[Rfam]
RNA sequence: UGUAGGCAGCAGCACAGAAGUAAGGGUGGCAAUACCAUAACCUGCCACCCUUAUUUCUGUGCUGCUGCUGCCAGCA
Number, nucleotide and partner (000 for none) at each position: 001u076002g075003u074004a000005g072006g071007c070008a066009g065010c064011a063012g062013c061014a060015c059016a000017g056018a000019a055020g054021u053022a052023a051024g050025g049026g048027u000028g000029g000030c000031a000032a000033u000034a000035c000036c000037a000038u000039a000040a000041c000042c000043u000044g000045c000046c000047a000048c026049c025050c024051u023052u022053a021054u020055u019056u017057c000058u000059g015060u014061g013062c012063u011064g010065c009066u008067g000068c000069u000070g007071c006072c005073a000074g003075c002076a001
Shown here is a 76-nucleotide sequence from Chrysemys picta, a member of the family "mir-16 microRNA precursor family". The family is grouped with related families in Rfam's "mir-15 clan". On this family, see Calin et al., Proc Natl Acad Sci U S A 2002: "Frequent deletions and down-regulation of micro- RNA genes miR15 and miR16 at 13q14 in chronic lymphocytic leukemia".